Shown here is a 99-nucleotide sequence, a member of the family "PhotoRC-II RNA".
It is one of the family's seed sequences.
Pairs were carried over by alignment from the consensus structure, which is taken from published work.
By type it is a cis-regulatory element.
RNA sequence: CUCCCUUGUAGAACUGCUCCUAAACCGAGACCUAUAGGCAGUAUAAUACUUCGUCUCUCAUAUCCGAAAGUGAAGGGAUUUUCGGAAAUAAGUAUCGCA
Numbered sequence: 001c002u003c004c005c006u007u008g009u010a011g012a013a014c015u016g017c018u019c020c021u022a023a024a025c026c027g028a029g030a031c032c033u034a035u036a037g038g039c040a041g042u043a044u045a046a047u048a049c050u051u052c053g054u055c056u057c058u059c060a061u062a063u064c065c066g067a068a069a070g071u072g073a074a075g076g077g078a079u080u081u082u083c084g085g086a087a088a089u090a091a092g093u094a095u096c097g098c099a
Stems, first nucleotide, its partner, number of pairs: 014041005021036002027057005064085007